[Rfam]
RNA: Burkholderia sRNA 2
Organism: Paraburkholderia ginsengiterrae
RNA sequence: AUGAGUGCCUGUCCACCCCACACAUUUCGCCGCUGCACCGAAUCCGACGGCCGCUUUGCCGGUUCUGUCGGAGCCAUCAGGCGCAACGUGAGUUUUGAAGGCGAGCCGCUUGCCCCGUACACCGGGGCGGCGGCUUUUUUA
Numbered sequence: 001a002u003g004a005g006u007g008c009c010u011g012u013c014c015a016c017c018c019c020a021c022a023c024a025u026u027u028c029g030c031c032g033c034u035g036c037a038c039c040g041a042a043u044c045c046g047a048c049g050g051c052c053g054c055u056u057u058g059c060c061g062g063u064u065c066u067g068u069c070g071g072a073g074c075c076a077u078c079a080g081g082c083g084c085a086a087c088g089u090g091a092g093u094u095u096u097g098a099a100g101g102c103g104a105g106c107c108g109c110u111u112g113c114c115c116c117g118u119a120c121a122c123c124g125g126g127g128c129g130g131c132g133g134c135u136u137u138u139u140u141a
Stems, first nucleotide, its partner, number of pairs: 007038001009035001011033002014029001047089003052083004061075005094101002104135006111129006